[Rfam]
RNA sequence: CACUUUCAUCCAGAGAGUGGCAUUUCGCCAUCGCCAACCUGCCAACUUGGGCAAGGUGGUUGCUGAGAAGGAACGACAUACGAGCGUUCCCAGCGAUGAGGCUAGCCGAUAAGCAAGAACAAAAUUGUUC
Numbered sequence: 001c002a003c004u005u006u007c008a009u010c011c012a013g014a015g016a017g018u019g020g021c022a023u024u025u026c027g028c029c030a031u032c033g034c035c036a037a038c039c040u041g042c043c044a045a046c047u048u049g050g051g052c053a054a055g056g057u058g059g060u061u062g063c064u065g066a067g068a069a070g071g072a073a074c075g076a077c078a079u080a081c082g083a084g085c086g087u088u089c090c091c092a093g094c095g096a097u098g099a100g101g102c103u104a105g106c107c108g109a110u111a112a113g114c115a116a117g118a119a120c121a122a123a124a125u126u127g128u129u130c
Base pairs, nucleotide, nucleotide: 006099007098008097009096010095015032017031018030019029020028021027033060034059035058038056039055040054041052042051043050045126047124048123101114102113103112

This 130-nucleotide RNA from Pseudoteredinibacter isoporae belongs to the Rfam family "SAM-I/IV (S-adenosyl methionine) riboswitch aptamer". The family has 417 seed sequences and 567 matches in Rfam 15.1. Rfam links the family to the GO terms S-adenosylmethionine metabolic process and regulation of gene expression. Pairs were carried over by alignment from the consensus structure, which is taken from published work. The organism belongs to Pseudoteredinibacter, within Bacteria.